[Rfam]
RNA sequence: CGCUUUUCGUGUUCACGGCAGACCUUGAUUUAAUAACAAUACAAUUAAGGCACGCGGUGAAUGCCAAAAGAG
Numbered sequence: 001c002g003c004u005u006u007u008c009g010u011g012u013u014c015a016c017g018g019c020a021g022a023c024c025u026u027g028a029u030u031u032a033a034u035a036a037c038a039a040u041a042c043a044a045u046u047a048a049g050g051c052a053c054g055c056g057g058u059g060a061a062u063g064c065c066a067a068a069a070g071a072g
Base pairs, nucleotide, nucleotide: 003070004069005068006067009064010063011062012061013060014059015058016057018055019054023050024049025048026047027046028045029044030043
Source information
Rfam assigns this 72-nucleotide RNA from Salmo salar to the family "mir-124 microRNA precursor family". The family's consensus secondary structure was predicted with PFOLD. On this family, see Lai et al., Genome Biol 2003: "Computational identification of Drosophila microRNA genes". NCBI's taxonomy places the organism under Eukaryota, Chordata, Euteleostomi, Euteleosteomorpha, Salmo.